[Rfam]
RNA sequence: AGACAUAGAGAUUAAAGGAGUAGUUCCCCACCCCGGAGCUACUUUACCAUAUUCUGAAUUC
Numbered sequence: 001a002g003a004c005a006u007a008g009a010g011a012u013u014a015a016a017g018g019a020g021u022a023g024u025u026c027c028c029c030a031c032c033c034c035g036g037a038g039c040u041a042c043u044u045u046a047c048c049a050u051a052u053u054c055u056g057a058a059u060u061c
Base pairs, nucleotide, nucleotide: 017045018044019043020042021041022040023039024038025037026036027035
Plastid-psbN 5UTR RNA: a 61-nucleotide RNA sequence from Arachis hypogaea. The family's consensus secondary structure was predicted with LocARNA. The match comes from Rfam's covariance-model search (68 bits). Plastid psbN is a non-coding RNA (ncRNA) recognised in plastids. It was reported as a conserved 11 stem-loop in the prime untranslated region (5UTR) of psbN genes.